[Rfam]
RNA sequence: ACAGAUUCCCCGGAGGAAGGAUAAAUCCGGGAAAAUAGAAUAAAAAUAAAUUAAGAUAGUAAUAGGAAUGAACGAAUAUGUUUAAAU
Numbered sequence: 001a002c003a004g005a006u007u008c009c010c011c012g013g014a015g016g017a018a019g020g021a022u023a024a025a026u027c028c029g030g031g032a033a034a035a036u037a038g039a040a041u042a043a044a045a046a047u048a049a050a051u052u053a054a055g056a057u058a059g060u061a062a063u064a065g066g067a068a069u070g071a072a073c074g075a076a077u078a079u080g081u082u083u084a085a086a087u
Base pairs, nucleotide, nucleotide: 007033009031010030011029012028013027014026070083071082072081073080
Record summary
Shown here is an 87-nucleotide RNA sequence from Musa balbisiana, a member of the family "Plastid-rpl20 3UTR RNA". The family has 270 seed sequences and 587 matches in Rfam 15.1. Lineage of the source: Eukaryota > Viridiplantae > Petrosaviidae > Musaceae > Musa. Plastid rpl20 is a non-coding RNA (ncRNA) recognised in plastids. It was found in the three prime untranslated region (3UTR) of rpl20 gene, it presence in the 3UTR region sugest a role in transcript maduration. Pairs were carried over by alignment from the consensus structure, which was predicted with LocARNA. A search with the family's covariance model found it, with a score of 57 bits.